[Rfam]
RNA sequence: AAAGAAAGCUAGGGGAGCCAUUUGGCUGAGAAGGUUUCAAACCUGACUCUUUGAACCUGAUGUGGUUAGUACCAUCGUAGGGAAGCUUAUACAUAAUUUU
Numbered sequence: 001a002a003a004g005a006a007a008g009c010u011a012g013g014g015g016a017g018c019c020a021u022u023u024g025g026c027u028g029a030g031a032a033g034g035u036u037u038c039a040a041a042c043c044u045g046a047c048u049c050u051u052u053g054a055a056c057c058u059g060a061u062g063u064g065g066u067u068a069g070u071a072c073c074a075u076c077g078u079a080g081g082g083a084a085g086c087u088u089a090u091a092c093a094u095a096a097u098u099u100u
Base pairs, nucleotide, nucleotide: 006088007087008086009085010084011050012049013048014047016044017026018025019024033043034042035041036040056081057080058079059078062075063074064073065072
The family of this 100-nucleotide RNA from Gottschalkia purinilytica is "TPP riboswitch aptamer (THI element)". The match comes from Rfam's covariance-model search (87 bits).